Rfam assigns this 99-nucleotide RNA sequence from Brevundimonas sp. M20 to the family "nhaA-II RNA".

[Rfam]
RNA sequence: AUCAGGUCGGUCCGCGCGCGGAUACGGCCAGGCCGGCGCCCAUGGCUGAUCGCCCUGCGGCGAAUCCGGUCCGGCGUCCGUCGAUAACCUGACGCCAUG
Numbered sequence: 001a002u003c004a005g006g007u008c009g010g011u012c013c014g015c016g017c018g019c020g021g022a023u024a025c026g027g028c029c030a031g032g033c034c035g036g037c038g039c040c041c042a043u044g045g046c047u048g049a050u051c052g053c054c055c056u057g058c059g060g061c062g063a064a065u066c067c068g069g070u071c072c073g074g075c076g077u078c079c080g081u082c083g084a085u086a087a088c089c090u091g092a093c094g095c096c097a098u099g
Base pairs, nucleotide, nucleotide: 005029006028007027008026009025031071032070033069034068035067036066037062038061039060040059073096074095075094076093077092078091
A search with the family's covariance model found it, with a score of 72 bits. Rfam classes the family as a cis-regulatory element.